Description
Shown here is a 136-nucleotide sequence from Orthohepacivirus hominis, a member of the family "Hepatitis C alternative reading frame stem-loop". Its family is annotated with regulation of translation in the Gene Ontology. The literature on the family includes a 2020 paper in Int J Mol Sci by Romero-Lopez and Berzal-Herranz, "The Role of the RNA-RNA Interactome in the Hepatitis C Virus Life Cycle". The base pairs follow the family's consensus structure, which was predicted with RNAfold. NCBI's taxonomy places the organism under Viruses, Riboviria, Amarillovirales, Orthohepacivirus hominis, Hepatitis C virus genotype 6. Rfam classes the family as a cis-regulatory element.
[Rfam]
RNA sequence: AACCGUCGUCCAAUGGAUGUUAAGUUCCCGGGCGGCGGUCAGAUCGUUGGUGGAGUCUACUUAUUGCCGCGCAGGGGCCCACGUUUGGGUGUGCGCGCGACGAGGAAGACUUCUGAACGAUCCCAGCCCAGAGGCA
Numbered sequence: 001a002a003c004c005g006u007c008g009u010c011c012a013a014u015g016g017a018u019g020u021u022a023a024g025u026u027c028c029c030g031g032g033c034g035g036c037g038g039u040c041a042g043a044u045c046g047u048u049g050g051u052g053g054a055g056u057c058u059a060c061u062u063a064u065u066g067c068c069g070c071g072c073a074g075g076g077g078c079c080c081a082c083g084u085u086u087g088g089g090u091g092u093g094c095g096c097g098c099g100a101c102g103a104g105g106a107a108g109a110c111u112u113c114u115g116a117a118c119g120a121u122c123c124c125a126g127c128c129c130a131g132a133g134g135c136a
Stems, first nucleotide, its partner, number of pairs: 003038009015027004042122006048115003052112002055110004060105002062102001068097006077090004